[Rfam]
Nucleotides: 099
Stems, first nucleotide, its partner, number of pairs: 013091006021083011034071008
Number, partner (000 for none) and nucleotide at each position: 001000u002000a003000c004000a005000c006000g007000a008000u009000u010000c011000u012000c013091a014090a015089a016088g017087g018086u019000a020000a021083a022082u023081a024080u025079c026078a027077g028076c029075u030074g031073g032000u033000a034071a035070u036069u037068c038067u039066g040065g041064g042000a043000g044000c045000u046000a047000a048000g049000c050000c051000u052000a053000a054000a055000u056000a057000u058000g059000a060000a061000a062000c063000a064041c065040u066039c067038g068037g069036a070035a071034u072000u073031u074030c075029a076028g077027u078026u079025g080024g081023u082022a083021u084000c085000g086018a087017c088016u089015u090014u091013u092000u093000u094000g095000a096000a097000u098000u099000g

A member of the RNA family "mir-283 microRNA precursor family" from Drosophila yakuba, 99 nucleotides long. Rfam links the family to the GO terms RISC complex and miRNA-mediated post-transcriptional gene silencing. The family has 11 seed sequences and 98 matches in Rfam 15.1. The family is grouped with related families in Rfam's "mir-216 clan". It is one of the family's seed sequences. On this family, see Weaver et al., Genome Biol 2007: "Computational and transcriptional evidence for microRNAs in the honey bee genome". The family's consensus secondary structure was predicted with WAR.